[Rfam]
RNA sequence: CCUCAGGCUCCCUGGGACACUAACAGACACCUGUGCCCCGGGGAGAGUGCGCCGAGUUCCCUAAAGGGCUGCAGUGCGCAAGGCUGGACCCGGGAGCUGCU
Numbered sequence: 001c002c003u004c005a006g007g008c009u010c011c012c013u014g015g016g017a018c019a020c021u022a023a024c025a026g027a028c029a030c031c032u033g034u035g036c037c038c039c040g041g042g043g044a045g046a047g048u049g050c051g052c053c054g055a056g057u058u059c060c061c062u063a064a065a066g067g068g069c070u071g072c073a074g075u076g077c078g079c080a081a082g083g084c085u086g087g088a089c090c091c092g093g094g095a096g097c098u099g100c101u
Base pairs, nucleotide, nucleotide: 007097008096009095010094011093012092014090015089018086019085020083021082028076031074032073033072034071035069036068037067038066040062041061042060043059044058045057048054049053
The record is a 101-nucleotide RNA from Nyctereutes procyonoides, which matches "mir-8904 microRNA precursor family" in Rfam. Rfam links the family to the GO terms RISC complex and miRNA-mediated post-transcriptional gene silencing. The family has 2 seed sequences and 207 matches in Rfam 15.1. The match comes from Rfam's covariance-model search (99 bits).